Small nucleolar RNA SNORA11: a 127-nucleotide RNA from Loxodonta africana. Its family is annotated with RNA processing and nucleolus in the Gene Ontology. U107 (SNORA11) is a member of the H/ACA class of snoRNAs that guide the sites of modification of uridines to pseudouridines. This snoRNA was identified by RT-PCR from blood cells and its expression confirmed by Northern blot analysis.

[Rfam]
RNA sequence: CGGGUGUACUCAGAGCAGGGGGCCUCAAGAGUGGCUUCUCUGUUUAUAACACACCCAAGAGGAAUCUGGGCUCAUUGUGACAAAGGGCACACAGCUCAUGGCCUUCCUAUGAACAACGCCCACACAG
Number, nucleotide and partner (000 for none) at each position: 001c000002g056003g055004g054005u053006g052007u051008a000009c000010u000011c000012a000013g045014a044015g043016c042017a041018g040019g039020g038021g037022g035023c034024c033025u000026c000027a000028a000029g000030a000031g000032u000033g024034g023035c022036u000037u021038c020039u019040c018041u017042g016043u015044u014045u013046a000047u000048a000049a000050c000051a007052c006053a005054c004055c003056c002057a000058a000059g000060a000061g000062g000063a000064a000065u000066c000067u000068g000069g120070g119071c118072u000073c000074a000075u000076u115077g114078u113079g000080a000081c111082a110083a000084a104085g103086g102087g000088c100089a099090c000091a000092c000093a000094g000095c000096u000097c000098a000099u089100g088101g000102c086103c085104u084105u000106c000107c000108u000109a000110u082111g081112a000113a078114c077115a076116a000117c000118g071119c070120c069121c000122a000123c000124a000125c000126a000127g000